[Rfam]
RNA: Bacteroidetes FopS (family of paralogous sRNAs)
RNA sequence: GUGAUUUUUUUCAUAGUAUUAGAUUUAAGGUUAACAAGGUUGGGGCAAGGCGUUGUCCCAUUUUUUUUGUC
Numbered sequence: 001g002u003g004a005u006u007u008u009u010u011u012c013a014u015a016g017u018a019u020u021a022g023a024u025u026u027a028a029g030g031u032u033a034a035c036a037a038g039g040u041u042g043g044g045g046c047a048a049g050g051c052g053u054u055g056u057c058c059c060a061u062u063u064u065u066u067u068u069g070u071c
Stems, first nucleotide, its partner, number of pairs: 042059007